[Rfam]
RNA: Small nucleolar RNA SNORA26
Organism: Odocoileus virginianus
Nucleotides: 124
Stems, first nucleotide, its partner, number of pairs: 002052003008047004016040001020036001059118001061116005072103007080095003085092002
Number, partner (000 for none) and nucleotide at each position: 001000a002052u003051a004050c005000a006000g007000a008047u009046u010045c011044u012000a013000a014000a015000a016040u017000c018000c019000u020036c021000a022000a023000c024000a025000u026000g027000c028000c029000u030000u031000a032000a033000g034000a035000g036020g037000c038000u039000a040016a041000c042000a043000c044011a045010g046009g047008a048000g049000g050004g051003u052002a053000g054000a055000g056000g057000a058000a059118g060000u061116c062115u063114c064113c065112a066000u067000a068000a069000a070000a071000c072103c073102c074101a075100g076099a077098g078097a079000a080095g081094a082093g083000a084000c085092u086091u087000u088000u089000a090000g091086a092085a093082c094081u095080c096000c097078u098077c099076u100075c101074u102073g103072g104000a105000u106000c107000c108000u109000g110000u111000c112065u113064g114063g115062a116061g117000u118059c119000a120000c121000a122000a123000c124000u